[Rfam]
Rfam assigns this 122-nucleotide RNA from Gillisia sp. Hel1_33_143 to the family "Bacteroidete tryptophan peptide leader RNA".
RNA sequence: UCAUACUUAUAUUUGGCGAAAUGAAAAAUUUAACUGUACAUACUUGGUGGUGGAAUAAUUUACGUCAAAACGUCGUGAACUAACACUCCUAUAGUAUAAUAUUAUAUACAAAAAGGCUUGUC
Numbered sequence: 001u002c003a004u005a006c007u008u009a010u011a012u013u014u015g016g017c018g019a020a021a022u023g024a025a026a027a028a029u030u031u032a033a034c035u036g037u038a039c040a041u042a043c044u045u046g047g048u049g050g051u052g053g054a055a056u057a058a059u060u061u062a063c064g065u066c067a068a069a070a071c072g073u074c075g076u077g078a079a080c081u082a083a084c085a086c087u088c089c090u091a092u093a094g095u096a097u098a099a100u101a102u103u104a105u106a107u108a109c110a111a112a113a114a115g116g117c118u119u120g121u122c
Stems, first nucleotide, its partner, number of pairs: 036102003040097005046090002049087004056082002059079003062073003

Description: A search with the family's covariance model found it, with a score of 74 bits. It is annotated as a cis-regulatory leader.